[Rfam]
RNA: msiK RNA
Organism: Rhodococcus jostii
RNA sequence: GGCACACCCCUAACACUCGGAUCGUCCGGCACGUUCCUGCCGGUGGAGGGAUUCAUUU
Numbered sequence: 001g002g003c004a005c006a007c008c009c010c011u012a013a014c015a016c017u018c019g020g021a022u023c024g025u026c027c028g029g030c031a032c033g034u035u036c037c038u039g040c041c042g043g044u045g046g047a048g049g050g051a052u053u054c055a056u057u058u
Base pairs, nucleotide, nucleotide: 009050010049011048014045015044026043027042028041029040030039031038